[Rfam]
The family of this 78-nucleotide RNA sequence from Anopheles darlingi is "mir-9/mir-79 microRNA precursor family". For this family Rfam cites "Identification of tissue-specific microRNAs from mouse" (Lagos-Quintana et al., Curr Biol, 2002). The family's consensus secondary structure was predicted with RNAalifold. Rfam 15.1 lists 5,647 matches to the family in 934 species. A search with the family's covariance model found it, with a score of 66 bits. Lineage of the source: Eukaryota > Protostomia > Allotriocarida > Culicomorpha > argyritarsis series. Rfam links the family to the GO terms miRNA-mediated post-transcriptional gene silencing and RISC complex.

RNA sequence: CAAUGUUCUCUUUGGUUAUCUAGCUGUAUGAGUGUAUUUAAAAACGUCAUAAAGCUAGCAUACCGAAGUUAAUAAUUG
Numbered sequence: 001c002a003a004u005g006u007u008c009u010c011u012u013u014g015g016u017u018a019u020c021u022a023g024c025u026g027u028a029u030g031a032g033u034g035u036a037u038u039u040a041a042a043a044a045c046g047u048c049a050u051a052a053a054g055c056u057a058g059c060a061u062a063c064c065g066a067a068g069u070u071a072a073u074a075a076u077u078g
Stems, first nucleotide, its partner, number of pairs: 001078004006072002010068007020058006027051005